[Rfam]
Potassium channel RNA editing signal: a 114-nucleotide sequence from Oryzias latipes. The family has 85 seed sequences and 14,095 matches in Rfam 15.1. The family's consensus secondary structure is taken from published work. The source organism's lineage runs through Eukaryota, Craniata, Euteleostomi, Clupeocephala and Oryzias. The literature on the family includes a 2004 paper in Nat Struct Mol Biol by Bhalla et al., "Control of human potassium channel inactivation by editing of a small mRNA hairpin". Rfam's curators write: This family represents a group of sequences related to the human potassium channel Kv1.1 hairpin element which directs the efficient modification of an adenosine to inosine by an adenosine deaminase acting on RNA (ADAR). The ADAR modification causes an isoleucine/valine recoding event which lies in the ion-conducting pore of the potassium channel. It is thought that this editing event targets the process of fast inactivation and allows a more rapid recovery from inactivation at negative potentials.
RNA sequence: CUCAGAUAUGGAGACAUGGUUCCUAAGACAAUUGCAGGGAAGAUCUUUGGGUCAAUUUGCUCUCUGAGUGGAGUGCUGGUAAUUGCCCUCCCAGUCCCUGUCAUCGUCUCCAAC
Numbered sequence: 001c002u003c004a005g006a007u008a009u010g011g012a013g014a015c016a017u018g019g020u021u022c023c024u025a026a027g028a029c030a031a032u033u034g035c036a037g038g039g040a041a042g043a044u045c046u047u048u049g050g051g052u053c054a055a056u057u058u059g060c061u062c063u064c065u066g067a068g069u070g071g072a073g074u075g076c077u078g079g080u081a082a083u084u085g086c087c088c089u090c091c092c093a094g095u096c097c098c099u100g101u102c103a104u105c106g107u108c109u110c111c112a113a114c
Base pairs, nucleotide, nucleotide: 002113005110008107009106010105011104013102014101015100016099018097019096021094037077038076040074049063050062051061